[Rfam]
RNA sequence: GCGUCGUUAGCUCAGUUGGCAGAGCAGCUGGCUCUUAACCAGCGGGUCACAGGUUCGAGCCCUGUACGACGCA
Numbered sequence: 001g002c003g004u005c006g007u008u009a010g011c012u013c014a015g016u017u018g019g020c021a022g023a024g025c026a027g028c029u030g031g032c033u034c035u036u037a038a039c040c041a042g043c044g045g046g047u048c049a050c051a052g053g054u055u056c057g058a059g060c061c062c063u064g065u066a067c068g069a070c071g072c073a
Base pairs, nucleotide, nucleotide: 001072002071003070004069005068006067007066010025011024012023013022027043028042029041030040031039049065050064051063052062053061
RNA: tRNA
Organism: Mycoplasmopsis gallinarum